[Rfam]
RNA sequence: ACCGCACAGGGUCAAAGCCUCCACGUGGCGUGCGGUGGGCAACGGACAACUCGCUCGUCCGGCUGAUUUGACCAU
Numbered sequence: 001a002c003c004g005c006a007c008a009g010g011g012u013c014a015a016a017g018c019c020u021c022c023a024c025g026u027g028g029c030g031u032g033c034g035g036u037g038g039g040c041a042a043c044g045g046a047c048a049a050c051u052c053g054c055u056c057g058u059c060c061g062g063c064u065g066a067u068u069u070g071a072c073c074a075u
Base pairs, nucleotide, nucleotide: 001036002035003034004033005032006031007030017029018028019027043061044060045059046058047057

About this RNA:
This 75-nucleotide RNA from Anaerotruncus sp. CAG:390 belongs to the Rfam family "HDV ribozyme from F. prausnitzii". For this family Rfam cites "Widespread occurrence of self-cleaving ribozymes" (Webb et al., Science, 2009). Gene Ontology term of the family: catalytic activity.